[Rfam]
Alphaproteobacterial ar14: a 124-nucleotide RNA from Martelella endophytica. Rfam links the family to the GO term biological process involved in symbiotic interaction. Rfam 15.1 lists 784 matches to the family in 332 species. The literature on the family includes a 2012 paper in RNA Biol by del Val et al., "A survey of sRNA families in alpha-proteobacteria". The organism belongs to Martelella, within Bacteria.
Nucleotides: 124
Stems, first nucleotide, its partner, number of pairs: 007039003011035001014034004045077004050072005087119011
Number, partner (000 for none) and nucleotide at each position: 001000g002000a003000a004000u005000a006000u007039c008038g009037g010000a011035g012000u013000u014034g015033c016032g017031c018000u019000c020000u021000c022000c023000u024000c025000c026000u027000c028000c029000c030000g031017g032016c033015g034014c035011c036000u037009c038008c039007g040000a041000u042000c043000u044000c045077g046076g047075c048074c049000a050072g051071c052070g053069a054068u055000a056000c057000u058000c059000c060000u061000c062000c063000u064000c065000c066000c067000a068054g069053u070052c071051g072050c073000c074048g075047g076046c077045c078000g079000a080000a081000c082000c083000g084000a085000u086000g087119a088118c089117g090116c091115c092114c093113a094112c095111c096110g097109g098000a099000u100000c101000c102000u103000c104000c105000u106000c107000c108000c109097c110096c111095g112094g113093u114092g115091g116090g117089c118088g119087u120000u121000u122000u123000c124000u